[Rfam]
RNA: ZMP/ZTP riboswitch aptamer (pfl RNA motif)
RNA sequence: AAAUAUGAUCGGAACUGGCGGAUAAGUGGAAAACCACGGGGGACCGAUCAUUGAGCUUUUUUGUAUUAACUGGAAGCUAAAAAUAAAUGUCGACCGCCUGGGCGAAAGCU
Numbered sequence: 001a002a003a004u005a006u007g008a009u010c011g012g013a014a015c016u017g018g019c020g021g022a023u024a025a026g027u028g029g030a031a032a033a034c035c036a037c038g039g040g041g042g043a044c045c046g047a048u049c050a051u052u053g054a055g056c057u058u059u060u061u062u063g064u065a066u067u068a069a070c071u072g073g074a075a076g077c078u079a080a081a082a083a084u085a086a087a088u089g090u091c092g093a094c095c096g097c098c099u100g101g102g103c104g105a106a107a108g109c110u
Stems, first nucleotide, its partner, number of pairs: 005051008015041002017098005026037004088104004